Record summary
Shown here is an 85-nucleotide RNA from Manduca sexta, a member of the family "mir-9571 microRNA precursor family". Taxonomically the source falls in Manduca (Eukaryota, Endopterygota, Bombycoidea, Sphingidae).

Nucleotides: 085
Stems, first nucleotide, its partner, number of pairs: 002083003005079014021063005028057009037046003
Number, partner (000 for none) and nucleotide at each position: 001000u002083g003082c004081g005079c006078g007077c008076a009075g010074g011073g012072g013071u014070u015069g016068c017067a018066a019000g020000a021063c022062c023061a024060g025059g026000c027000c028057a029056c030055u031054u032053a033052u034051u035050u036049u037046u038045u039044a040000u041000u042000a043000u044039u045038g046037a047000a048000c049036a050035a051034a052033a053032u054031a055030a056029g057028u058000u059025c060024c061023u062022g063021g064000a065000a066018u067017u068016g069015u070014a071013g072012c073011u074010u075009c076008u077007g078006c079005g080000u081004u082003g083002c084000u085000a
Background: Gene Ontology terms of the family: RISC complex and miRNA-mediated post-transcriptional gene silencing.